[Rfam]
Nucleotides: 120
Base pairs, nucleotide, nucleotide: 008025009024010023011022012021051072052071053070054069055068
Number, partner (000 for none) and nucleotide at each position: 001000a002000c003000g004000u005000c006000u007000u008025g009024c010023u011022g012021g013000u014000u015000u016000a017000g018000u019000g020000u021012u022011c023010g024009g025008c026000u027000u028000g029000a030000c031000g032000c033000g034000a035000u036000u037000u038000u039000u040000a041000a042000a043000c044000a045000c046000u047000a048000a049000u050000u051072u052071a053070a054069g055068g056000u057000a058000u059000a060000a061000a062000c063000u064000a065000u066000g067000u068055c069054u070053u071052u072051a073000u074000c075000a076000g077000u078000a079000g080000a081000g082000c083000a084000a085000a086000a087000a088000g089000c090000a091000g092000c093000u094000a095000u096000c097000g098000u099000u100000g101000c102000u103000g104000a105000a106000u107000a108000c109000g110000c111000a112000a113000c114000a115000a116000a117000a118000g119000a120000a

About this RNA
A member of the RNA family "Ribosomal S15 leader" from Thalassotalea sp. PP2-459, 120 nucleotides long. Pairs were carried over by alignment from the consensus structure, which is taken from published work. The source organism's lineage runs through Bacteria, Pseudomonadota, Gammaproteobacteria, Colwelliaceae and Thalassotalea. It is annotated as a cis-regulatory leader. A reference for the family is Benard et al. (1996), "Pseudoknot and translational control in the expression of the S15 ribosomal protein", Biochimie.